[Rfam]
RNA sequence: UUGAAGAAUUUGAAAACUUCAACUUUCACGCAUAAAGAAAUUAAAUACUUCAACUUGCAGACUUGAAGAAUUUGAAGACUUCAACU
Number, nucleotide and partner (000 for none) at each position: 001u084002u083003g082004a081005a080006g079007a000008a000009u076010u075011u074012g073013a072014a071015a000016a000017c068018u067019u066020c065021a064022a000023c000024u000025u059026u000027c057028a056029c000030g000031c000032a000033u052034a000035a050036a049037g048038a000039a000040a000041u000042u000043a000044a000045a000046u000047a000048c037049u036050u035051c000052a033053a000054c000055u000056u028057g027058c000059a025060g000061a000062c000063u000064u021065g020066a019067a018068g017069a000070a000071u014072u013073u012074g011075a010076a009077g000078a000079c006080u005081u004082c003083a002084a001085c000086u000